RNA sequence: AGUUGAAAAGAGCAAACCAAUUGAAAGAUUGGGACGCAAAACUAUAGGGACUAAAGCUUCGUGCUAUGUCUGCCAGUUGCCGCG
Numbered sequence: 001a002g003u004u005g006a007a008a009a010g011a012g013c014a015a016a017c018c019a020a021u022u023g024a025a026a027g028a029u030u031g032g033g034a035c036g037c038a039a040a041a042c043u044a045u046a047g048g049g050a051c052u053a054a055a056g057c058u059u060c061g062u063g064c065u066a067u068g069u070c071u072g073c074c075a076g077u078u079g080c081c082g083c084g
Base pairs, nucleotide, nucleotide: 012037013036017032018031019030020029021028022027040078041077042076043075047074048073049070050069051068056064057063
Background: The record is an 84-nucleotide RNA sequence from Pullulanibacillus camelliae, which matches "c-di-GMP-I riboswitch aptamer" in Rfam. It scores 71 bits against the family's covariance model. Rfam's curators write: GEMM was predicted in a large-scale screen for bacterial structured RNA regulatory elements. Taxonomically the source falls in Pullulanibacillus (Bacteria, Bacillota, Bacilli, Caryophanales).